[Rfam]
RNA: Iron response element II
RNA sequence: UCAUUAUCGGGAGCAGAGUCUUCCAUUAUGU
Numbered sequence: 001u002c003a004u005u006a007u008c009g010g011g012a013g014c015a016g017a018g019u020c021u022u023c024c025a026u027u028a029u030g031u
Base pairs, nucleotide, nucleotide: 002030003029004028006026007025009024010023011022012021013020014018